[Rfam]
RNA: Guanidine-I riboswitch aptamer
Organism: Alkalihalophilus pseudofirmus
Nucleotides: 102
Base pairs, nucleotide, nucleotide: 007055008054009053010052011051012050015045016044020042021041022039023036024035025034026033057075058074059073060072061071062070077097079100083095084094085093
Number, partner (000 for none) and nucleotide at each position: 001000c002000a003000u004000g005000u006000u007055g008054u009053u010052u011051u012050c013000u014000a015045g016044g017000g018000u019000u020042c021041c022039g023036c024035a025034g026033c027000g028000a029000u030000u031000c032000a033026g034025c035024u036023g037000g038000a039022c040000u041021g042020g043000u044016c045015c046000g047000a048000g049000a050012g051011a052010a053009a054008a055007c056000c057075c058074a059073c060072a061071a062070u063000g064000a065000a066000a067000c068000c069000a070062a071061u072060u073059g074058u075057g076000a077097c078000a079100c080000g081000g082000a083095g084094g085093g086000a087000u088000a089000a090000a091000a092000g093085c094084c095083c096000g097077g098000g099000a100079g101000a102000u